[Rfam]
RNA sequence: GGUAUUGUUUGCCCCACGAUGAGCCCCGGAAACUCAAUUGGAUCAAACAGACA
Numbered sequence: 001g002g003u004a005u006u007g008u009u010u011g012c013c014c015c016a017c018g019a020u021g022a023g024c025c026c027c028g029g030a031a032a033c034u035c036a037a038u039u040g041g042a043u044c045a046a047a048c049a050g051a052c053a
Stems, first nucleotide, its partner, number of pairs: 006049006015041001018038001020036004